The family of this 34-nucleotide RNA from Ovis aries is "L31-Firmicutes ribosomal protein leader". The family's consensus secondary structure is taken from published work. It scores 38 bits against the family's covariance model. The family is grouped with related families in Rfam's "Ribosomal Protein L31 Leader clan". It is annotated as a cis-regulatory leader.
[Rfam]
RNA sequence: CUCUGAUGCUGGAAGAGUUUCAGGGCAGAAGGAG
Numbered sequence: 001c002u003c004u005g006a007u008g009c010u011g012g013a014a015g016a017g018u019u020u021c022a023g024g025g026c027a028g029a030a031g032g033a034g
Stems, first nucleotide, its partner, number of pairs: 001025005008018003